Shown here is an 82-nucleotide RNA from Gulosibacter chungangensis, a member of the family "ZMP/ZTP riboswitch aptamer (pfl RNA motif)". The literature on the family includes a 2015 paper in Nat Struct Mol Biol by Jones and Ferre-D'Amare, "Recognition of the bacterial alarmone ZMP through long-distance association of two RNA subdomains". The organism belongs to Gulosibacter, within Bacteria.

RNA sequence: UGAUGUGGUCGCGACUGGCGUCAGGUGGGGCACCAUCGGGGAGCGGCACACGGAUCACGAGCCGCACGCCUGGGCUCGCCGA
Numbered sequence: 001u002g003a004u005g006u007g008g009u010c011g012c013g014a015c016u017g018g019c020g021u022c023a024g025g026u027g028g029g030g031c032a033c034c035a036u037c038g039g040g041g042a043g044c045g046g047c048a049c050a051c052g053g054a055u056c057a058c059g060a061g062c063c064g065c066a067c068g069c070c071u072g073g074g075c076u077c078g079c080c081g082a
Base pairs, nucleotide, nucleotide: 004050005049006048008047009046010045011044012043015040016039017070018069019068020067021066025036026035027034028033059077060076061075062074063073